[Rfam]
RNA sequence: GGGUCCUGUACUGAGCUGCCCCGAGGUCCUUCACUGUGCUCAGCUCGGGGCAGCUCAGUACAGGAUGC
Numbered sequence: 001g002g003g004u005c006c007u008g009u010a011c012u013g014a015g016c017u018g019c020c021c022c023g024a025g026g027u028c029c030u031u032c033a034c035u036g037u038g039c040u041c042a043g044c045u046c047g048g049g050g051c052a053g054c055u056c057a058g059u060a061c062a063g064g065a066u067g068c
Stems, first nucleotide, its partner, number of pairs: 008061011020049006

Rfam assigns this 68-nucleotide sequence from Mus musculus to the family "mir-486 microRNA precursor family". The organism belongs to Mus, within Eukaryota. Rfam links the family to the GO terms miRNA-mediated post-transcriptional gene silencing and RISC complex.